[Rfam]
RNA sequence: UUUAGGGAUAGAGGCGCAGUGCUUAAGAGUAAUUAUUCCGAGAUGCCAGUCCAUGACGAAUAAAGAAAGGAAACACUGCCGAAGCCGGAUGAUGGCCAAGUGUCCGGCUGGGUUUAUACUGAAAGAGUAUAAAACUGUCAUUCUGGAACGGAAUGAAGCGCUAUUCGGGAC
Numbered sequence: 001u002u003u004a005g006g007g008a009u010a011g012a013g014g015c016g017c018a019g020u021g022c023u024u025a026a027g028a029g030u031a032a033u034u035a036u037u038c039c040g041a042g043a044u045g046c047c048a049g050u051c052c053a054u055g056a057c058g059a060a061u062a063a064a065g066a067a068a069g070g071a072a073a074c075a076c077u078g079c080c081g082a083a084g085c086c087g088g089a090u091g092a093u094g095g096c097c098a099a100g101u102g103u104c105c106g107g108c109u110g111g112g113u114u115u116a117u118a119c120u121g122a123a124a125g126a127g128u129a130u131a132a133a134a135c136u137g138u139c140a141u142u143c144u145g146g147a148a149c150g151g152a153a154u155g156a157a158g159c160g161c162u163a164u165u166c167g168g169g170a171c
Stems, first nucleotide, its partner, number of pairs: 006166006016079006023072002033063006083109009093099001110136002113133008138156007